[Rfam]
Nucleotides: 113
Base pairs, nucleotide, nucleotide: 008026009025010024011023012021013020014019030081031080032079033078034077035076039074040073041072042051043050044049055071056070057069058068059067060066082103083102084101085100086099087098088097089096090095
Number, partner (000 for none) and nucleotide at each position: 001000u002000a003000u004000a005000g006000c007000a008026g009025c010024a011023g012021g013020c014019a015000g016000a017000g018000a019014u020013g021012c022000g023011c024010u025009g026008u027000a028000c029000a030081c031080u032079c033078g034077u035076g036000c037000a038000a039074g040073c041072g042051a043050a044049u045000u046000u047000g048000c049044g050043u051042u052000u053000a054000a055071g056070c057069g058068g059067u060066a061000u062000g063000u064000a065000a066060u067059g068058c069057c070056g071055u072041c073040g074039c075000c076035c077034a078033c079032g080031a081030g082103g083102a084101g085100g086099c087098c088097g089096c090095c091000u092000u093000c094000g095090g096089g097088c098087g099086g100085c101084u102083u103082u104000u105000u106000u107000a108000u109000u110000g111000g112000a113000g
The family of this 113-nucleotide sequence is "DUF3800-I RNA". Actinobacteria, Firmicutes, Fusobacteria, Proteobacteria (1 example), Tenericutes (2 examples).